About this RNA: Shown here is a 509-nucleotide RNA sequence from Streptomyces kanasensis, a member of the family "Saccharopolyspora sRNA 350". On this family, see Liu et al., PLoS One 2013: "Prediction and characterization of small non-coding RNAs related to secondary metabolites in Saccharopolyspora erythraea". NCBI's taxonomy places the organism under Bacteria, Bacillati, Actinomycetota, Streptomycetaceae, Streptomyces. A search with the family's covariance model found it, with a score of 148 bits.

RNA sequence: CGGUGGGUGUACUCCCAGCUGCACUCGCCGUCGAGCAGGGCGCCGUCGCCGAAGUACGCGCCGUCGGCCAGGACGUCGACGACGGCCUCGUCGCCGUAGGGACCGGUGCCGAUCUUCUCUACCUUGCCGUGGGCGAGGAGGAAGACCCGGUCCGCGGCCGAGCCGGCCUCGACGAUGACGUCGCCGGGGGCGACGUCGCGCUGCGAGCAGCGCGUGGCGAGCUCCCGCAGGGCCGCCUGGUCGUCGUACCCGCGCAGGGGUGGCAGCUCGCACAGCUCGGCCGGGAUCACCUCGACGCGCUCGCCGGUCUGCACGAAGGUGACGCGCCCGUCGCCCACGGCGUAGGUGAGCCUCCGGUUCACCCGGUACGCGCCGCCCUGGACCUGCACCCACGGGAGCAUCUUCAGGACCCACCGGGAGGUGAUCUCCUGCAUCUGGGGCGCUGACUUGGUGGUGGUGGCCAGGUUCCGCGCCGCCGCGGUGCCGAGGCUCUGCUGCGGAGGCACCUG
Number, nucleotide and partner (000 for none) at each position: 001c000002g000003g000004u000005g000006g390007g389008u388009g387010u386011a385012c000013u000014c000015c381016c380017a000018g328019c000020u000021g325022c324023a000024c000025u322026c321027g320028c319029c318030g000031u316032c315033g000034a000035g000036c000037a000038g310039g309040g000041c000042g000043c000044c000045g308046u307047c306048g305049c000050c303051g302052a301053a000054g233055u232056a000057c230058g228059c227060g226061c000062c000063g223064u000065c111066g110067g109068c108069c000070a000071g000072g000073a000074c000075g103076u000077c000078g000079a000080c099081g000082a097083c096084g095085g094086c093087c000088u000089c000090g000091u000092c000093g086094c085095c084096g083097u082098a000099g080100g000101g000102a000103c075104c000105g000106g000107u000108g068109c067110c066111g065112a000113u000114c000115u000116u000117c221118u220119c000120u219121a000122c217123c216124u000125u000126g213127c212128c000129g000130u209131g000132g000133g204134c203135g202136a000137g000138g199139a000140g197141g000142a000143a196144g000145a000146c000147c000148c000149g000150g191151u000152c189153c188154g000155c186156g185157g184158c183159c000160g000161a000162g000163c000164c000165g000166g173167c000168c000169u000170c000171g000172a000173c166174g000175a000176u000177g000178a000179c000180g000181u000182c000183g158184c157185c156186g155187g000188g153189g152190g000191c150192g000193a000194c000195g000196u143197c140198g000199c138200g000201c000202u135203g134204c133205g000206a000207g000208c000209a130210g000211c000212g127213c126214g000215u000216g123217g122218c000219g120220a118221g117222c000223u063224c000225c000226c060227g059228c058229a000230g057231g000232g055233c054234c299235g298236c297237c000238u000239g000240g290241u289242c000243g287244u286245c285246g000247u000248a000249c283250c000251c000252g000253c279254g278255c000256a277257g276258g000259g000260g271261u270262g269263g000264c000265a000266g000267c000268u000269c262270g261271c260272a000273c000274a000275g000276c257277u256278c254279g253280g000281c000282c000283g249284g000285g245286a244287u243288c000289a241290c240291c000292u000293c000294g000295a000296c000297g236298c235299g234300c000301u052302c051303g050304c000305c048306g047307g046308u045309c039310u038311g000312c000313a000314c000315g032316a031317a000318g029319g028320u027321g026322a025323c000324g022325c021326g000327c000328c018329c342330g341331u340332c339333g000334c000335c000336c000337a000338c000339g332340g331341c330342g329343u000344a000345g000346g000347u000348g000349a000350g000351c000352c000353u000354c000355c375356g374357g373358u000359u000360c372361a000362c370363c000364c000365g000366g000367u000368a000369c000370g362371c000372g360373c357374c356375g355376c000377c000378c000379u000380g016381g015382a000383c000384c000385u011386g010387c009388a008389c007390c006391c431392a430393c000394g428395g427396g426397a425398g000399c423400a422401u421402c000403u418404u417405c416406a000407g415408g000409a000410c000411c000412c000413a000414c000415c407416g405417g404418g403419a000420g000421g401422u400423g399424a000425u397426c396427u395428c394429c000430u392431g391432c000433a000434u000435c000436u000437g476438g000439g474440g473441c000442g471443c470444u000445g468446a467447c465448u464449u463450g462451g461452u460453g000454g000455u000456g000457g000458u000459g000460g452461c451462c450463a449464g448465g447466u000467u446468c445469c000470g443471c442472g000473c440474c439475g000476c437477c000478g507479c000480g000481g000482u501483g000484c500485c499486g498487a496488g495489g000490c000491u000492c000493u000494g000495c488496u487497g000498c486499g485500g484501a482502g000503g000504c000505a000506c000507c478508u000509g000